[Rfam]
RNA: terC RNA
Organism: Falsiroseomonas stagni
RNA sequence: CUGGGGGUCCGGGCCCCUCUGGCGGCGAUGGCGCCGUCAUGUCGGACACCUUCC
Number, nucleotide and partner (000 for none) at each position: 001c000002u000003g000004g000005g000006g000007g047008u046009c045010c044011g043012g042013g000014c000015c000016c000017c000018u000019c000020u000021g000022g037023c036024g035025g034026c033027g032028a000029u000030g000031g000032c027033g026034c025035c024036g023037u022038c000039a000040u000041g000042u012043c011044g010045g009046a008047c007048a000049c000050c000051u000052u000053c000054c000